[Rfam]
The family of this 88-nucleotide sequence from Paenibacillus sp. N3.4 is "c-di-GMP-I riboswitch aptamer". Rfam links the family to the GO term cyclic-di-GMP binding. Lineage of the source: Bacteria > Bacillota > Bacilli > Caryophanales > Paenibacillus. The base pairs follow the family's consensus structure, which is taken from published work. GEMM was predicted in a large-scale screen for bacterial structured RNA regulatory elements.
RNA sequence: UUCGAUAAACGGCAAACUUGUUGAAAGGCAAGGACGCAAAGCUAAGGGUCUAAGGUUCUUCCGGAACUAUGACAGCCUGGUUACCGAA
Numbered sequence: 001u002u003c004g005a006u007a008a009a010c011g012g013c014a015a016a017c018u019u020g021u022u023g024a025a026a027g028g029c030a031a032g033g034a035c036g037c038a039a040a041g042c043u044a045a046g047g048g049u050c051u052a053a054g055g056u057u058c059u060u061c062c063g064g065a066a067c068u069a070u071g072a073c074a075g076c077c078u079g080g081u082u083a084c085c086g087a088a
Stems, first nucleotide, its partner, number of pairs: 012037002017032006040082004045078003048073003055067004